Small nucleolar RNA SNORA53: a 211-nucleotide sequence from Muraenolepis orangiensis. The family has 28 seed sequences and 1,090 matches in Rfam 15.1. NCBI's taxonomy places the organism under Eukaryota, Actinopterygii, Paracanthopterygii, Gadiformes, Muraenolepis. The base pairs follow the family's consensus structure, which was predicted with RNAalifold.
RNA sequence: AACACGCUCCUUAGAUCCACCUCUGGAGGCGCUCCUGCUCCUCAUGGAGUCGGUGAGCUCCUCAGCAGAUUCUCGUCUGUACGGUCGGAGGUGCUUGAGUCAUUGGCGUGUGAGAACAGUCUACCUGCCUCCCGGCCCCUCUGCUGCACUGGCAACUCUGCCCUCUACAGGCGGAGUGCUCCCACUGCAGUCAGGCCGGGGGGCGGACACU
Number, nucleotide and partner (000 for none) at each position: 001a000002a111003c110004a109005c108006g107007c106008u105009c000010c099011u098012u097013a096014g095015a000016u000017c000018c093019a092020c091021c090022u089023c088024u087025g086026g063027a062028g061029g060030c000031g058032c055033u000034c053035c052036u000037g000038c000039u000040c000041c000042u000043c000044a000045u000046g000047g000048a000049g000050u000051c000052g035053g034054u000055g032056a000057g000058c031059u000060c029061c028062u027063c026064a000065g080066c079067a078068g077069a076070u075071u000072c000073u000074c000075g070076u069077c068078u067079g066080u065081a000082c000083g000084g000085u000086c025087g024088g023089a022090g021091g020092u019093g018094c000095u014096u013097g012098a011099g010100u000101c000102a000103u000104u000105g008106g007107c006108g005109u004110g003111u002112g000113a000114g000115a000116a000117c000118a000119g000120u000121c000122u000123a000124c000125c206126u205127g204128c203129c202130u000131c000132c199133c000134g197135g196136c195137c194138c000139c000140u000141c000142u000143g000144c000145u189146g188147c187148a186149c000150u184151g183152g182153c000154a000155a000156c000157u000158c000159u000160g172161c171162c170163c000164u000165c000166u000167a000168c000169a000170g162171g161172c160173g000174g000175a000176g000177u000178g000179c000180u000181c000182c152183c151184a150185c000186u148187g147188c146189a145190g000191u000192c000193a000194g137195g136196c135197c134198g000199g132200g000201g000202g129203g128204c127205g126206g125207a000208c000209a000210c000211u000
The snoRNA ACA53 belongs to the H/ACA family of pseudouridylation guide snoRNAs.